Shown here is a 46-nucleotide sequence from Ailuropoda melanoleuca, a member of the family "Histone 3' UTR stem-loop". On this family, see Williams and Marzluff, Nucleic Acids Res 1995: "The sequence of the stem and flanking sequences at the 3' end of histone mRNA are critical determinants for the binding of the stem-loop binding protein". It scores 39 bits against the family's covariance model. The mRNAs of metazoan histone genes lack a poly-A tail. 3' end processing occurs at a site between a highly conserved stem-loop (modelled by this family) and a purine rich region around 20 nts downstream (the histone downstream element, or HDE). The stem-loop is bound by a 31 kDa stem-loop binding protein (SLBP - also termed the histone hairpin binding protein, or HBP). Together with U7 snRNA binding of the HDE, SLBP binding nucleate s the formation of the processing complex. The family has 50 seed sequences and 44,596 matches in Rfam 15.1.

RNA sequence: CUAACGGCUCUUUUCAGAGCCACCUAUAUUCUCAAAGAGAGAGCUG
Numbered sequence: 001c002u003a004a005c006g007g008c009u010c011u012u013u014u015c016a017g018a019g020c021c022a023c024c025u026a027u028a029u030u031c032u033c034a035a036a037g038a039g040a041g042a043g044c045u046g
Stems, first nucleotide, its partner, number of pairs: 006021006